RNA: Bacterial large signal recognition particle RNA
RNA sequence: UUGUGCUAGGCGGGGAGCUAGCGGUGCCCUUUUCCCGAAAUCCGCUUCAUGCGGGGCUGAAUUCCCUCUUAAGGGUUUUAAUCUGGAAGCCUAUAGGCCAAUCUGAUCGGCCACCGCGCAACAGACGGUUACGAACCUCGUCAGGUCCGGAAGGAAGCAGCGAUAAGUAAUGCGGUCUGUGUCGUGGAUUGAUCCCGGUCAAUUUUUUGGCUUGUUAUAUUUCAGUAAGAAUUCGACAGAGGGUGCACAA
Numbered sequence: 001u002u003g004u005g006c007u008a009g010g011c012g013g014g015g016a017g018c019u020a021g022c023g024g025u026g027c028c029c030u031u032u033u034c035c036c037g038a039a040a041u042c043c044g045c046u047u048c049a050u051g052c053g054g055g056g057c058u059g060a061a062u063u064c065c066c067u068c069u070u071a072a073g074g075g076u077u078u079u080a081a082u083c084u085g086g087a088a089g090c091c092u093a094u095a096g097g098c099c100a101a102u103c104u105g106a107u108c109g110g111c112c113a114c115c116g117c118g119c120a121a122c123a124g125a126c127g128g129u130u131a132c133g134a135a136c137c138u139c140g141u142c143a144g145g146u147c148c149g150g151a152a153g154g155a156a157g158c159a160g161c162g163a164u165a166a167g168u169a170a171u172g173c174g175g176u177c178u179g180u181g182u183c184g185u186g187g188a189u190u191g192a193u194c195c196c197g198g199u200c201a202a203u204u205u206u207u208u209g210g211c212u213u214g215u216u217a218u219a220u221u222u223c224a225g226u227a228a229g230a231a232u233u234c235g236a237c238a239g240a241g242g243g244u245g246c247a248c249a250a
Stems, first nucleotide, its partner, number of pairs: 001250006009058003012030004017025003034055004039050001064243006073234005079229001083225006092217002094214006104201007114187005119181002122179005128171005138163004146155003